[Rfam]
RNA sequence: GUCGCGGCCGCCUCUGGUUCGCUUGGUGCAGGUCGGGAACCUCUCGAUCCUUCGGCGGACGAGCUGCUUCCUGCCUUGCGCCAACUGAAUCGGAGUCGGAGAGCGAC
Numbered sequence: 001g002u003c004g005c006g007g008c009c010g011c012c013u014c015u016g017g018u019u020c021g022c023u024u025g026g027u028g029c030a031g032g033u034c035g036g037g038a039a040c041c042u043c044u045c046g047a048u049c050c051u052u053c054g055g056c057g058g059a060c061g062a063g064c065u066g067c068u069u070c071c072u073g074c075c076u077u078g079c080g081c082c083a084a085c086u087g088a089a090u091c092g093g094a095g096u097c098g099g100a101g102a103g104c105g106a107c
Stems, first nucleotide, its partner, number of pairs: 013094002017090004023084010034073005041066001
RNA: MIR168 microRNA precursor family
Organism: Zingiber officinale